[Rfam]
A member of the RNA family "Burkholderia sRNA 25" from Burkholderia cenocepacia, 85 nucleotides long. From the family's description: Identified by RNA-seq, RACE and Northern blot. Strongly expressed in biofilm. The sequence is in the family's curated seed alignment. Rfam links the family to the GO term bacterial biofilm matrix. The literature on the family includes a 2017 paper in Sci Rep by Sass et al., "Identification of small RNAs abundant in Burkholderia cenocepacia biofilms reveal putative regulators with a potential role in carbon and iron metabolism".
RNA sequence: UCUGCUUUCCGAAGCAGACUUUUUCGUUGACGGAAAAGAUCUCCAAACCUUUGUCGGCGCGACUUCCCAGUCGCGCUUUUUUUUU
Numbered sequence: 001u002c003u004g005c006u007u008u009c010c011g012a013a014g015c016a017g018a019c020u021u022u023u024u025c026g027u028u029g030a031c032g033g034a035a036a037a038g039a040u041c042u043c044c045a046a047a048c049c050u051u052u053g054u055c056g057g058c059g060c061g062a063c064u065u066c067c068c069a070g071u072c073g074c075g076c077u078u079u080u081u082u083u084u085u
Stems, first nucleotide, its partner, number of pairs: 001018007019038008056077009